[Rfam]
RNA sequence: CGACGGGACACGCCGCCCCAACGCGGCGCGCCCAUCUGUAAGGAUGGAGACA
Number, nucleotide and partner (000 for none) at each position: 001c000002g000003a000004c000005g000006g000007g000008a000009c000010a000011c028012g027013c026014c025015g024016c023017c000018c000019c000020a000021a000022c000023g016024c015025g014026g013027c012028g011029c000030g000031c000032c047033c046034a045035u044036c043037u042038g000039u000040a000041a000042g037043g036044a035045u034046g033047g032048a000049g000050a000051c000052a000